[Rfam]
RNA sequence: GGCGUAAAGGGUGUGCAGGUUGUUUUUAAAAAUUAAUUUUUAAAUAUAUUAAAGUAAUUUAAUAUGGAAAUUAAUACUUAUAAACUUGAGUAUAAAAGAAGAAAUUAGAAUUUCAAGAGUAGCAGUGAAAUGCUUAGAUAUUUGAAAGAAUACUAGUGGCGAAGGCGUAUUUCUAUUUUAUUACUGACACUAAUACACGAAAGCAUGGGGAGCAAACAGGAUUAGAUACCCUGGUAGUCCAUGCAGUAAACGAUGUCAACUAUUUAUUAAAUAUCAUAAUAAUUAAUUUUAUGUAAAAAAAUUAUGUAUUUUUAGUGAAAAAGCUAACGCGUUAAGUUGACCGCCUGGGGAUUACGGCCGCAAGGUUAAAACUCAAAUGAAU
Number, nucleotide and partner (000 for none) at each position: 001g345002g344003c343004g000005u000006a000007a000008a000009g342010g000011g198012u197013g196014u195015g000016c000017a000018g191019g190020u189021u000022g085023u084024u083025u082026u000027u080028a079029a000030a000031a078032a000033u074034u073035a072036a071037u070038u069039u068040u067041u066042a000043a000044a000045u000046a063047u062048a000049u061050u000051a059052a058053a000054g000055u000056a000057a000058u052059u051060u000061a049062a047063u046064a000065u000066g041067g040068a039069a038070a037071u036072u035073a034074a033075u000076a000077c000078u031079u028080a027081u000082a025083a024084a023085c022086u000087u000088g000089a185090g184091u183092a181093u180094a179095a178096a177097a176098g000099a000100a174101g173102a172103a171104a170105u169106u000107a151108g000109a000110a000111u147112u146113u145114c144115a143116a142117g141118a000119g000120u000121a000122g133123c132124a131125g000126u000127g000128a000129a000130a000131u124132g123133c122134u000135u000136a000137g000138a000139u000140a000141u117142u116143u115144g114145a113146a112147a111148g000149a000150a000151u107152a000153c000154u000155a000156g000157u000158g000159g166160c165161g000162a000163a000164g000165g160166c159167g000168u000169a105170u104171u103172u102173c101174u100175a000176u097177u096178u095179u094180a093181u092182u000183a091184c090185u089186g000187a000188c000189a020190c019191u018192a000193a000194u000195a014196c013197a012198c011199g000200a000201a000202a000203g244204c243205a242206u241207g240208g239209g000210g000211a000212g238213c237214a000215a000216a000217c233218a232219g231220g230221a000222u000223u000224a000225g000226a000227u000228a000229c000230c220231c219232u218233g217234g000235u000236a000237g213238u212239c208240c207241a206242u205243g204244c203245a000246g000247u000248a000249a000250a000251c000252g000253a000254u000255g341256u340257c339258a338259a337260c336261u000262a000263u319264u318265u317266a316267u315268u314269a313270a312271a311272u000273a309274u308275c000276a000277u000278a000279a000280u000281a000282a000283u000284u000285a000286a000287u000288u000289u000290u000291a000292u000293g000294u000295a000296a000297a000298a000299a000300a000301a000302u000303u000304a000305u000306g000307u000308a274309u273310u000311u271312u270313u269314a268315g267316u266317g265318a264319a263320a000321a000322a000323g330324c329325u000326a000327a000328c000329g324330c323331g000332u000333u000334a000335a000336g260337u259338u258339g257340a256341c255342c009343g003344c002345c001346u000347g374348g373349g372350g000351a000352u000353u000354a000355c000356g367357g366358c365359c364360g000361c000362a000363a000364g359365g358366u357367u356368a000369a000370a000371a000372c349373u348374c347375a000376a000377a000378u000379g000380a000381a000382u000
Annotation:
A member of the RNA family "Bacterial small subunit ribosomal RNA" from Candidatus Carsonella ruddii, 382 nucleotides of a longer RNA. The base pairs follow the family's consensus structure, which is taken from published work. NCBI's taxonomy places the organism under Bacteria, Pseudomonadota, Oceanospirillales, Halomonadaceae, Candidatus Carsonella.